[Rfam]
Streptomyces sRNA 4677: a 223-nucleotide RNA from Streptomyces sp. NWU49. By type it is a small RNA. The base pairs follow the family's consensus structure. On this family, see Hindra et al., PLoS One 2014: "Complex intra-operonic dynamics mediated by a small RNA in Streptomyces coelicolor". It scores 62 bits against the family's covariance model.

RNA sequence: GGGUCCGGUGGGCCACUGACCUCCCCAAAGGACCGGGAGAAAGAACCACCCGCCCACCCACCCUCCCCGCCGAAAGGCCCGCGUCACUCGUGCGAGUGACCGGCUUGCAGGCGCGGGACGCGGGCGGUUACGUUCGCCGCGACAACCGCAAACAGAUACGGCCCCCGGCCGGGAUUGCCGUCCCGAUCGAGGGCCUGACCGAUCAGGAAGAGCACACUUCCCG
Dot-bracket structure: ..........(((.......................................................)))............((((((....))))))..........((((.....................)))).....................(((((.((...((((......))))...)).)))))..........(((((......)))))..
Numbered sequence: 001g002g003g004u005c006c007g008g009u010g011g012g013c014c015a016c017u018g019a020c021c022u023c024c025c026c027a028a029a030g031g032a033c034c035g036g037g038a039g040a041a042a043g044a045a046c047c048a049c050c051c052g053c054c055c056a057c058c059c060a061c062c063c064u065c066c067c068c069g070c071c072g073a074a075a076g077g078c079c080c081g082c083g084u085c086a087c088u089c090g091u092g093c094g095a096g097u098g099a100c101c102g103g104c105u106u107g108c109a110g111g112c113g114c115g116g117g118a119c120g121c122g123g124g125c126g127g128u129u130a131c132g133u134u135c136g137c138c139g140c141g142a143c144a145a146c147c148g149c150a151a152a153c154a155g156a157u158a159c160g161g162c163c164c165c166c167g168g169c170c171g172g173g174a175u176u177g178c179c180g181u182c183c184c185g186a187u188c189g190a191g192g193g194c195c196u197g198a199c200c201g202a203u204c205a206g207g208a209a210g211a212g213c214a215c216a217c218u219u220c221c222c223g
Stems, first nucleotide, its partner, number of pairs: 011071003084099006110138004160195005166189002171184004206221005